[Rfam]
RNA: U4 spliceosomal RNA
RNA sequence: AGCUUUGCGCAGUGGCAGUAUUGUAGCCAAUGAAGUUUAUCUGAGAUGCAAUUAUUGCUAAUUAAAAGAAAAAUAUGUCCUUGGGAGUUACUGGUCAUCUAAUUGUUUGUUUAUUUUCUAUGCCACAAGAUUGU
Numbered sequence: 001a002g003c004u005u006u007g008c009g010c011a012g013u014g015g016c017a018g019u020a021u022u023g024u025a026g027c028c029a030a031u032g033a034a035g036u037u038u039a040u041c042u043g044a045g046a047u048g049c050a051a052u053u054a055u056u057g058c059u060a061a062u063u064a065a066a067a068g069a070a071a072a073a074u075a076u077g078u079c080c081u082u083g084g085g086a087g088u089u090a091c092u093g094g095u096c097a098u099c100u101a102a103u104u105g106u107u108u109g110u111u112u113a114u115u116u117u118c119u120a121u122g123c124c125a126c127a128a129g130a131u132u133g134u
Stems, first nucleotide, its partner, number of pairs: 020052005026047001028045001034042002083110001085108004090103001092101003125134003